[Rfam]
RNA sequence: CAUGUAUAAACGCAAACCGUCCGAAAGGACGGGACGCAAAGUCAGGAAUCUAAUGCCCAACCAGGGCUAUGAUCGUCCGGCCGCCGUG
Numbered sequence: 001c002a003u004g005u006a007u008a009a010a011c012g013c014a015a016a017c018c019g020u021c022c023g024a025a026a027g028g029a030c031g032g033g034a035c036g037c038a039a040a041g042u043c044a045g046g047a048a049u050c051u052a053a054u055g056c057c058c059a060a061c062c063a064g065g066g067c068u069a070u071g072a073u074c075g076u077c078c079g080g081c082c083g084c085c086g087u088g
Stems, first nucleotide, its partner, number of pairs: 012037002017032006041081003045078003048073003055067004
Rfam assigns this 88-nucleotide sequence from Paenibacillus graminis to the family "c-di-GMP-I riboswitch aptamer". It scores 69 bits against the family's covariance model.